[Rfam]
RNA sequence: CAUUGUUCUGAUCACCUGAAGAUCAGUCACUAGAAAAGGAAGAUCAGUGAAGUUCUUUGGACCUGAUCGACUUAAUACAAGAGCUACUGAUUUCAUCUUCUUUAGCCCAACUCUCUGAAACAAUGAAGUAUACAAGUUCCAUCUUGGCUCUUCAGUUCUGUAUCAUU
Numbered sequence: 001c002a003u004u005g006u007u008c009u010g011a012u013c014a015c016c017u018g019a020a021g022a023u024c025a026g027u028c029a030c031u032a033g034a035a036a037a038g039g040a041a042g043a044u045c046a047g048u049g050a051a052g053u054u055c056u057u058u059g060g061a062c063c064u065g066a067u068c069g070a071c072u073u074a075a076u077a078c079a080a081g082a083g084c085u086a087c088u089g090a091u092u093u094c095a096u097c098u099u100c101u102u103u104a105g106c107c108c109a110a111c112u113c114u115c116u117g118a119a120a121c122a123a124u125g126a127a128g129u130a131u132a133c134a135a136g137u138u139c140c141a142u143c144u145u146g147g148c149u150c151u152u153c154a155g156u157u158c159u160g161u162a163u164c165a166u167u
Stems, first nucleotide, its partner, number of pairs: 009069006016117001018115001020114003026106002029103001032101004041093008051085003056081004119167002123163003128142002132138001146157004
About this RNA: Rfam assigns this 167-nucleotide sequence from Cavia porcellus to the family "Interferon gamma 5' UTR regulatory element". For this family Rfam cites "Human interferon-gamma mRNA autoregulates its translation through a pseudoknot that activates the interferon-inducible protein kinase PKR" (Ben-Asouli et al., Cell, 2002). A search with the family's covariance model found it, with a score of 133 bits. From the family's description: This family represents a pseudoknot containing stem-loop structure found in the 5' UTR of interferon (IFN) gamma mRNA. This structure is thought to be involved in translational regulation and the pseudoknot has been found to activate PKR which is known to be a translational inhibitor. Mutations in the pseudoknot structure have been found to reduce PKR activation and increase the translation of IFN-gamma. Taxonomically the source falls in Cavia (Eukaryota, Mammalia, Eutheria, Boreoeutheria).